[Rfam]
RNA sequence: GACAGUCGAGGAUGCCCGUGACGACUAGCAAAAUUCAACCGACAAAUAACAUCCGGGAGAACAUAUUUUUAUUCCUAUGGAAUGCCCCUAAGGGGACUUCAGAAGAAUAAAAUUUGUCACCCACCUUUAGUGCGUGGCGGGUGUGAAUUUUGCUAGUUGACGACAUCUUGGAUCAAAG
Numbered sequence: 001g002a003c004a005g006u007c008g009a010g011g012a013u014g015c016c017c018g019u020g021a022c023g024a025c026u027a028g029c030a031a032a033a034u035u036c037a038a039c040c041g042a043c044a045a046a047u048a049a050c051a052u053c054c055g056g057g058a059g060a061a062c063a064u065a066u067u068u069u070u071a072u073u074c075c076u077a078u079g080g081a082a083u084g085c086c087c088c089u090a091a092g093g094g095g096a097c098u099u100c101a102g103a104a105g106a107a108u109a110a111a112a113u114u115u116g117u118c119a120c121c122c123a124c125c126u127u128u129a130g131u132g133c134g135u136g137g138c139g140g141g142u143g144u145g146a147a148u149u150u151u152g153c154u155a156g157u158u159g160a161c162g163a164c165a166u167c168u169u170g171g172a173u174c175a176a177a178g
Stems, first nucleotide, its partner, number of pairs: 005173003009169006017162003031150007038142003055122003059118002063114001066112001068111007080099002085095004
The record is a 178-nucleotide sequence from Natronincola ferrireducens, which matches "6S / SsrS RNA" in Rfam.
Pairs were carried over by alignment from the consensus structure, which is taken from published work.
It is annotated as a non-coding RNA gene.
A reference for the family is Wassarman and Storz (2000), "6S RNA regulates E. coli RNA polymerase activity", Cell.
About the family: E. coli 6S RNA was the first non coding RNA to be sequenced, but its function was unknown until recently. It consists of 184 nucleotides that fold into an extended hairpin structure with a large single-stranded internal bulge. The 6S RNA specifically associates with RNA polymerase holoenzyme containing the sigma70 specificity factor. This interaction represses expression from a sigma70-dependent promoter during stationary phase. 6S RNA homologs have recently been identified in most bacterial genomes.
Lineage of the source: Bacteria > Bacillati > Clostridia > Peptostreptococcales > Natronincola.
The match comes from Rfam's covariance-model search (51 bits).